[Rfam]
RNA sequence: CCGGGACAUCAAGAGUUGAGCGGACGCUCAACGCCAACCUGCUUCCCGAGCAAGGUGGCGCUCCUGUUGCGGAGGAUGUGGCCUAACCGGCAACCAAACGGGUCCAG
Numbered sequence: 001c002c003g004g005g006a007c008a009u010c011a012a013g014a015g016u017u018g019a020g021c022g023g024a025c026g027c028u029c030a031a032c033g034c035c036a037a038c039c040u041g042c043u044u045c046c047c048g049a050g051c052a053a054g055g056u057g058g059c060g061c062u063c064c065u066g067u068u069g070c071g072g073a074g075g076a077u078g079u080g081g082c083c084u085a086a087c088c089g090g091c092a093a094c095c096a097a098a099c100g101g102g103u104c105c106a107g
Stems, first nucleotide, its partner, number of pairs: 006079005015032001017030005033059003038055003041051003046102002081091003
Shown here is a 107-nucleotide RNA from Nisaea acidiphila, a member of the family "SAM-I/IV (S-adenosyl methionine) riboswitch aptamer". Lineage of the source: Bacteria > Pseudomonadati > Pseudomonadota > Rhodospirillales > Nisaea.